[Rfam]
RNA sequence: CGGUUAAAACGUUUGUAGUUGAACUUGUGUUUCAUGCGGGUAGUACAACUUACAAUUGUGGUAAGCGUAUUACCGGUGGAGUUCUUAUGUGUGAUUAAAUACUUGUAUUUUUUCAUAUGUUCCUCCUAUUUAAAACCUGCAUUAGUGCUCUUAAACUAGUGUUAUUGUGGGCCGGUACUAUUACUUUGAACAAAUAAGAGUGCUUAAAGCAGGCUUCAAAUGCCUGAUUAUUAUGUGCUUGGGAUAAUGAAAUAAGACCUCUGUUCUGCUUUCAUUGGAUUUCAGAUCAAGAGGUAAUGAUUAAUGGAAGCAAUUUGGGGGAAUUAGUAUUACGACGCUAGAGCUGAAAUUCUUGGACCGUCGUAAGACUACCUUAAGCGAAAGCAUUUGCCAAAGAUGUUUUCAUUAAUCAAGAACGAAAGUUAGAGGUUCGAAGGCGAUCAGAUACCGCCCUAGUUUUAACCAUAAAAGAUGCCAGCUAGCAAUUGGGUGUAGCUACUUUAAUCGAUCAUUCAUUCAGUCGCUUCCCGGGAAACCAAAGCUUUUGGGCUCCGGGGGAAGAAUGGUUGCAAAGCUGAAACUUAAAGGAAU
Number, nucleotide and partner (000 for none) at each position: 001c554002g553003g552004u000005u000006a000007a000008a000009a551010c000011g417012u416013u415014u414015g000016u000017a000018g410019u409020u408021g000022a000023a000024c000025u000026u000027g000028u000029g000030u000031u000032u000033c000034a000035u000036g000037c000038g000039g000040g000041u000042a000043g000044u000045a000046c000047a000048a000049c000050u000051u000052a000053c000054a000055a000056u000057u000058g000059u000060g000061g000062u000063a000064a000065g000066c000067g000068u000069a000070u000071u000072a000073c000074c000075g000076g000077u000078g000079g000080a000081g000082u000083u000084c000085u000086u000087a000088u000089g000090u000091g000092u000093g000094a000095u000096u000097a000098a000099a000100u000101a000102c000103u000104u000105g000106u000107a000108u000109u000110u000111u000112u000113u000114c000115a000116u000117a000118u000119g000120u000121u000122c000123c000124u000125c000126c000127u000128a000129u000130u000131u000132a000133a000134a000135a000136c000137c000138u000139g000140c000141a000142u000143u000144a000145g000146u000147g000148c000149u000150c000151u000152u000153a000154a000155a000156c000157u000158a000159g000160u000161g000162u000163u000164a000165u000166u000167g000168u000169g000170g000171g000172c000173c000174g000175g000176u000177a000178c000179u000180a000181u000182u000183a000184c000185u000186u000187u000188g000189a000190a000191c000192a000193a000194a000195u000196a000197a000198g000199a000200g000201u000202g000203c000204u000205u000206a000207a000208a000209g000210c000211a000212g000213g000214c000215u000216u000217c000218a000219a000220a000221u000222g000223c000224c000225u000226g000227a000228u000229u000230a000231u000232u000233a000234u000235g000236u000237g000238c000239u000240u000241g000242g000243g000244a000245u000246a000247a000248u000249g000250a000251a000252a000253u000254a000255a000256g000257a000258c000259c000260u000261c000262u000263g000264u000265u000266c000267u000268g000269c000270u000271u000272u000273c000274a000275u000276u000277g000278g000279a000280u000281u000282u000283c000284a000285g000286a000287u000288c000289a000290a000291g000292a000293g000294g000295u000296a000297a000298u000299g000300a000301u000302u000303a000304a000305u000306g000307g404308a403309a402310g401311c399312a398313a000314u397315u396316u395317g000318g000319g000320g392321g391322a000323a389324u000325u000326a370327g369328u000329a000330u366331u365332a364333c363334g362335a361336c360337g359338c000339u000340a000341g352342a351343g350344c000345u000346g000347a000348a000349a000350u343351u342352c341353u000354u000355g000356g000357a000358c000359c337360g336361u335362c334363g333364u332365a331366a330367g000368a000369c327370u326371a000372c000373c000374u000375u386376a000377a000378g385379c384380g000381a000382a000383a000384g379385c378386a375387u000388u000389u323390g000391c321392c320393a000394a000395a316396g315397a314398u312399g311400u000401u310402u309403u308404c307405a000406u000407u000408a020409a019410u018411c000412a000413a000414g014415a013416a012417c011418g000419a000420a000421a000422g463423u462424u461425a460426g459427a458428g000429g000430u000431u000432c456433g000434a000435a000436g452437g451438c450439g449440a000441u000442c000443a000444g000445a000446u000447a000448c000449c439450g438451c437452c436453c000454u000455a000456g432457u000458u427459u426460u425461a424462a423463c422464c000465a000466u000467a000468a000469a000470a000471g000472a000473u000474g550475c549476c548477a543478g542479c541480u000481a525482g524483c523484a000485a000486u520487u519488g518489g517490g516491u515492g514493u000494a000495g512496c000497u000498a000499c000500u000501u000502u000503a000504a000505u000506c000507g000508a000509u000510c000511a000512u495513u000514c492515a491516u490517u489518c488519a487520g486521u000522c000523g483524c482525u481526u000527c000528c000529c000530g537531g536532g000533a000534a000535a000536c531537c530538a000539a000540a000541g479542c478543u477544u000545u000546u000547g000548g476549g475550c474551u009552c003553c002554g001555g000556g583557g582558g581559a000560a000561g000562a000563a000564u000565g576566g575567u574568u573569g000570c000571a000572a000573a568574g567575c566576u565577g000578a000579a000580a000581c558582u557583u556584a000585a000586a000587g000588g000589a000590a000591u000

Eukaryotic small subunit ribosomal RNA: a 591-nucleotide part of an RNA from Drosophila erecta. Its family is annotated with ribosome and structural constituent of ribosome in the Gene Ontology. Its Rfam clan is "SSU clan". Taxonomically the source falls in Sophophora (Eukaryota, Allotriocarida, Dicondylia, Brachycera).